RNA sequence: GGAUCGACGAUGAGUCCCACAAAUGCAUUCCUUGGAUAUCUGAAAAAAAUGAAUUCGAAAUUCCUACCGUCUCCUCAUUGGAACUGAGGUCC
Numbered sequence: 001g002g003a004u005c006g007a008c009g010a011u012g013a014g015u016c017c018c019a020c021a022a023a024u025g026c027a028u029u030c031c032u033u034g035g036a037u038a039u040c041u042g043a044a045a046a047a048a049a050u051g052a053a054u055u056c057g058a059a060a061u062u063c064c065u066a067c068c069g070u071c072u073c074c075u076c077a078u079u080g081g082a083a084c085u086g087a088g089g090u091c092c
Stems, first nucleotide, its partner, number of pairs: 001092005027054004032047002

Annotation:
This 92-nucleotide RNA sequence from Physeter macrocephalus belongs to the Rfam family "Small nucleolar RNA SNORD116". NCBI's taxonomy places the organism under Eukaryota, Craniata, Theria, Eutheria, Physeter. The family's RNA type in Rfam is C/D-box small nucleolar RNA. Its family is annotated with nucleolus and RNA processing in the Gene Ontology.